[Rfam]
RNA sequence: UGCUAUGGAUGAUGAGAUAAGCAAUUCAUAAUUAUCCCUGUUUGAUACAUUAUGAUGAAUGCUUGUGAUCUGACAUGACA
Numbered sequence: 001u002g003c004u005a006u007g008g009a010u011g012a013u014g015a016g017a018u019a020a021g022c023a024a025u026u027c028a029u030a031a032u033u034a035u036c037c038c039u040g041u042u043u044g045a046u047a048c049a050u051u052a053u054g055a056u057g058a059a060u061g062c063u064u065g066u067g068a069u070c071u072g073a074c075a076u077g078a079c080a
Base pairs, nucleotide, nucleotide: 001080002079004077005076006075007074
Shown here is an 80-nucleotide RNA sequence from Capsicum baccatum, a member of the family "Small nucleolar RNA R38". Its family is annotated with nucleolus and RNA processing in the Gene Ontology. It scores 46 bits against the family's covariance model. Rfam describes the family as follows. snoR38 is a C/D box small nucleolar RNA conserved across yeast, human, Arabidopsis and rice. It is encoded in the intron of elongation factor-1 gamma in both pombe and cerevisiae. snoR38 guides the methylation of 2'-O-ribose sites in 28S rRNA. A reference for the family is Bachellerie et al. (1995), "Antisense snoRNAs: a family of nucleolar RNAs with long complementarities to rRNA", Trends Biochem Sci.